[Rfam]
RNA sequence: UGGUGCCCAUCGUGGCCGCUGGAUACUGGGGGCACAUUGUGAGGGAGACAACAGAGGAAAAGGAGUGCACUCACUAAAUCUCAAGGAAUUCGGCGCGGCAGCACGACCGAACCAAAGGUAAGUUGUGCCAUCCGAUCAUGGGGCAGGAAUUGAGCCAGCAUCAGAUUUAGGUCAAGCGAUUGAGAGAGGCUCUAAAGACACGAGGAGUAAAGGUUAGGACUGCGGAUUUAUGUCAUUUCUUUGAUUUUGUAAGGGACAUUUGUCCUU
Number, nucleotide and partner (000 for none) at each position: 001u000002g000003g000004u000005g000006c032007c030008c029009a000010u000011c000012g026013u025014g024015g000016c000017c000018g000019c000020u000021g000022g000023a000024u014025a013026c012027u000028g000029g008030g007031g000032g006033c000034a000035c000036a000037u051038u050039g049040u048041g000042a000043g000044g000045g000046a000047g000048a040049c039050a038051a037052c000053a000054g000055a000056g000057g000058a000059a000060a000061a000062g000063g000064a000065g000066u000067g000068c000069a000070c000071u000072c000073a000074c000075u000076a000077a000078a000079u000080c000081u000082c000083a000084a000085g000086g000087a000088a000089u000090u000091c000092g000093g000094c000095g000096c000097g000098g000099c000100a000101g000102c000103a000104c000105g000106a000107c000108c000109g000110a000111a000112c000113c000114a000115a000116a000117g000118g000119u000120a000121a000122g000123u000124u000125g000126u145127g144128c143129c000130a000131u142132c141133c140134g139135a000136u000137c000138a000139u134140g133141g132142g131143g128144c127145a126146g000147g000148a000149a000150u000151u194152g193153a000154g190155c189156c188157a000158g000159c000160a000161u000162c000163a000164g000165a000166u000167u000168u000169a000170g000171g000172u000173c000174a000175a000176g000177c000178g000179a000180u000181u000182g000183a000184g000185a000186g000187a000188g156189g155190c154191u000192c000193u152194a151195a000196a000197g000198a000199c000200a000201c243202g242203a241204g240205g239206a238207g237208u000209a000210a000211a229212g228213g227214u226215u225216a000217g000218g000219a000220c000221u000222g000223c000224g000225g215226a214227u213228u212229u211230a000231u000232g000233u000234c000235a000236u000237u207238u206239c205240u204241u203242u202243g201244a000245u000246u000247u000248u000249g000250u000251a000252a267253g266254g265255g264256a263257c262258a000259u000260u000261u000262g257263u256264c255265c254266u253267u252
Shown here is a 267-nucleotide RNA from Nannospalax galili, a member of the family "Mason-Pfizer monkey virus packaging signal". It is annotated as a cis-regulatory element. On this family, see Mustafa et al., Virus Res 2004: "Mutational analysis of the predicted secondary RNA structure of the Mason-Pfizer monkey virus packaging signal". The organism belongs to Nannospalax, within Eukaryota. Rfam links the family to the GO term viral genome packaging.